This 194-nucleotide RNA sequence from bacterium 1XD42-8 belongs to the Rfam family "T-box leader". Rfam links the family to the GO term tRNA binding. The family has 48 seed sequences and 19,395 matches in Rfam 15.1. It scores 99 bits against the family's covariance model.
RNA sequence: AAAUAGGCGAUGAAGAGGAAUAGUACAGAUAGGGACAGGAACAGAGAGAAAACGUUGGUGAGAGUUUUUGCUGGAGUGAUCUGGAACCAGCCUUGGAGCUUCCUAAAUGGGGACGUAAUUUUGGCGUUAACAAAAACGAAGAGAGCUGAACUAUAGGAAUUAGGGUGGUAUUGCCGAAUCUUUCGGUCCCUUUG
Numbered sequence: 001a002a003a004u005a006g007g008c009g010a011u012g013a014a015g016a017g018g019a020a021u022a023g024u025a026c027a028g029a030u031a032g033g034g035a036c037a038g039g040a041a042c043a044g045a046g047a048g049a050a051a052a053c054g055u056u057g058g059u060g061a062g063a064g065u066u067u068u069u070g071c072u073g074g075a076g077u078g079a080u081c082u083g084g085a086a087c088c089a090g091c092c093u094u095g096g097a098g099c100u101u102c103c104u105a106a107a108u109g110g111g112g113a114c115g116u117a118a119u120u121u122u123g124g125c126g127u128u129a130a131c132a133a134a135a136a137c138g139a140a141g142a143g144a145g146c147u148g149a150a151c152u153a154u155a156g157g158a159a160u161u162a163g164g165g166u167g168g169u170a171u172u173g174c175c176g177a178a179u180c181u182u183u184c185g186g187u188c189c190c191u192u193u194g
Stems, first nucleotide, its partner, number of pairs: 007099002015094004026083005037072002048069006102112003114126003146157002149154001162191004173187005